[Rfam]
RNA sequence: AGCUAGAGGGGAGGCAAGAUGUUGGCAUAGCUGUAAUGUUAUAAACCUGCUAUGCCAACGUAUUGCCAUCUUUCUUUUCU
Numbered sequence: 001a002g003c004u005a006g007a008g009g010g011g012a013g014g015c016a017a018g019a020u021g022u023u024g025g026c027a028u029a030g031c032u033g034u035a036a037u038g039u040u041a042u043a044a045a046c047c048u049g050c051u052a053u054g055c056c057a058a059c060g061u062a063u064u065g066c067c068a069u070c071u072u073u074c075u076u077u078u079c080u
Stems, first nucleotide, its partner, number of pairs: 005075007013067005019061003023057009